[Rfam]
RNA: Small nucleolar RNA SNORA42/SNORA80 family
RNA sequence: GCAUGGGUUUGGAUUUAUGACAGGCCCGUCACCCUGGGCCUGUCAUAGUACCCCAUGCCAGAGCAAACUGUGUCCCCGAACCAUUGCCUGGCCUCUGUGCCCGUAGGCUGCUGGCACUGAAGUGGGUUGCACAGUG
Numbered sequence: 001g002c003a004u005g006g007g008u009u010u011g012g013a014u015u016u017a018u019g020a021c022a023g024g025c026c027c028g029u030c031a032c033c034c035u036g037g038g039c040c041u042g043u044c045a046u047a048g049u050a051c052c053c054c055a056u057g058c059c060a061g062a063g064c065a066a067a068c069u070g071u072g073u074c075c076c077c078g079a080a081c082c083a084u085u086g087c088c089u090g091g092c093c094u095c096u097g098u099g100c101c102c103g104u105a106g107g108c109u110g111c112u113g114g115c116a117c118u119g120a121a122g123u124g125g126g127u128u129g130c131a132c133a134g135u136g
Stems, first nucleotide, its partner, number of pairs: 001058004005053004015048006022041003025037002071129002074126003082119002087114002089110006